[Rfam]
RNA sequence: AUUAAAUCUUAAUGUUUUCUUCGUAUAAUAUCGGGAAUAUGGCCCGAAAGUUUCUACCGAGCUGCCGUAAAUAGCUUGACUACGAGGUGACAGAACAGAUAG
Numbered sequence: 001a002u003u004a005a006a007u008c009u010u011a012a013u014g015u016u017u018u019c020u021u022c023g024u025a026u027a028a029u030a031u032c033g034g035g036a037a038u039a040u041g042g043c044c045c046g047a048a049a050g051u052u053u054c055u056a057c058c059g060a061g062c063u064g065c066c067g068u069a070a071a072u073a074g075c076u077u078g079a080c081u082a083c084g085a086g087g088u089g090a091c092a093g094a095a096c097a098g099a100u101a102g
Base pairs, nucleotide, nucleotide: 019087020086021085022084023083024082025081029049031047032046033045034044035043058078059077060076061075062074063073064072

A member of the RNA family "Purine riboswitch aptamer" from Bacillus aerolatus, 102 nucleotides long.
Taxonomically the source falls in Bacillus (Bacteria, Bacillota, Caryophanales, Bacillaceae).
A search with the family's covariance model found it, with a score of 90 bits.
The family's consensus secondary structure is taken from published work.